[Rfam]
RNA sequence: CAUACUCAAAAACAACGCUCCGAAUGGUUGCCCCUGGAUUACUAACGGUGCGUAUGUCGCCAAUCGCAGGAUCGUAAAUGCCGUGGAAUCGAAUCCAACCGACAAAAAGGAGGGCUGUAAAACCUAAAAGUAGAAGGUGGUGGCCAAGAAUAAAGCCUAGUUUUUCAGGAUCAUCCCA
Number, nucleotide and partner (000 for none) at each position: 001c000002a000003u000004a000005c000006u000007c000008a000009a000010a000011a000012a000013c000014a000015a000016c000017g000018c000019u000020c000021c000022g000023a000024a000025u000026g000027g000028u000029u000030g000031c000032c000033c000034c000035u000036g000037g000038a000039u000040u000041a000042c000043u000044a000045a000046c000047g000048g000049u000050g000051c000052g000053u000054a000055u000056g000057u000058c000059g000060c000061c000062a000063a000064u000065c000066g000067c000068a000069g000070g000071a000072u000073c000074g000075u000076a000077a000078a000079u000080g000081c000082c000083g000084u000085g000086g000087a000088a000089u000090c000091g000092a000093a000094u000095c000096c000097a000098a000099c000100c000101g000102a000103c000104a000105a000106a000107a000108a000109g000110g000111a000112g000113g000114g000115c000116u000117g000118u000119a000120a000121a000122a000123c000124c000125u000126a000127a000128a000129a000130g000131u000132a000133g000134a000135a000136g175137g174138u173139g172140g171141u170142g000143g000144c169145c168146a000147a000148g165149a000150a000151u000152a000153a000154a000155g000156c000157c000158u000159a000160g000161u000162u000163u000164u000165u148166c000167a000168g145169g144170a141171u140172c139173a138174u137175c136176c000177c000178a000
RNA: Antisense RNA which regulates isiA expression
Organism: Acaryochloris thomasi